transfer-messenger RNA: a 352-nucleotide RNA sequence from Dyella sp. OK004. The literature on the family includes a 1996 paper in RNA by Williams and Bartel, "Phylogenetic analysis of tmRNA secondary structure".
[Rfam]
RNA sequence: GGGGGUGUCAUGGCUUCGACGGGGGUAGUGAGAUAGUUUGGUGCAUGCCGAGGGGGCAGCUUUCCUCGUAAAUCCAGCCGCAAACUUAUAGUUGCCAACGACGACAACUACAAUCAGGCCCUAGCAGCCUGAUUCCCGAACCCACUUGUGCCUGUGCUUGUGGAUGUAGGGUCAUUAUCACAGGAUCGCCCGAAGCUGCCGCCUGUCGGUCAGGGUUAAAUCAAGCAGGCUGGUCCUUCGAUGCGCUUUGCACGCUGUGCUGUCGCGGGACGAGAAUCAACGGCGAGCUAAGCAUGUAGUACCGGGCGUCAAGCGCCUUCGGACGCGGGUUCGACUCCCGCCACCUCCACCA
Numbered sequence: 001g002g003g004g005g006u007g008u009c010a011u012g013g014c015u016u017c018g019a020c021g022g023g024g025g026u027a028g029u030g031a032g033a034u035a036g037u038u039u040g041g042u043g044c045a046u047g048c049c050g051a052g053g054g055g056g057c058a059g060c061u062u063u064c065c066u067c068g069u070a071a072a073u074c075c076a077g078c079c080g081c082a083a084a085c086u087u088a089u090a091g092u093u094g095c096c097a098a099c100g101a102c103g104a105c106a107a108c109u110a111c112a113a114u115c116a117g118g119c120c121c122u123a124g125c126a127g128c129c130u131g132a133u134u135c136c137c138g139a140a141c142c143c144a145c146u147u148g149u150g151c152c153u154g155u156g157c158u159u160g161u162g163g164a165u166g167u168a169g170g171g172u173c174a175u176u177a178u179c180a181c182a183g184g185a186u187c188g189c190c191c192g193a194a195g196c197u198g199c200c201g202c203c204u205g206u207c208g209g210u211c212a213g214g215g216u217u218a219a220a221u222c223a224a225g226c227a228g229g230c231u232g233g234u235c236c237u238u239c240g241a242u243g244c245g246c247u248u249u250g251c252a253c254g255c256u257g258u259g260c261u262g263u264c265g266c267g268g269g270a271c272g273a274g275a276a277u278c279a280a281c282g283g284c285g286a287g288c289u290a291a292g293c294a295u296g297u298a299g300u301a302c303c304g305g306g307c308g309u310c311a312a313g314c315g316c317c318u319u320c321g322g323a324c325g326c327g328g329g330u331u332c333g334a335c336u337c338c339c340g341c342c343a344c345c346u347c348c349a350c351c352a
Base pairs, nucleotide, nucleotide: 001348002347003346004345005344006343007342020321021320022319023318024317025316026315029312032310033309034308038305039304040303041302042301043300044296045295046294047293048292049068050067051066052065053064056081057080059078060077061076112134113133114132115131116130117129118128119127135171136170137169139167142163143162144161145160148157151184152183153182154181155180156179189215190214191213194210201230202229203228204227205226233271234270235269236268237267239265240264241263242262245260246259250288251287256283325341326340327339328338329337
Lineage of the source: Bacteria > Gammaproteobacteria > Lysobacterales > Rhodanobacteraceae > Dyella. Clan: tRNA clan. About the family: Bacterial tmRNA, also known as 10Sa RNA or SsrA, is named for its dual tRNA and mRNA-like properties.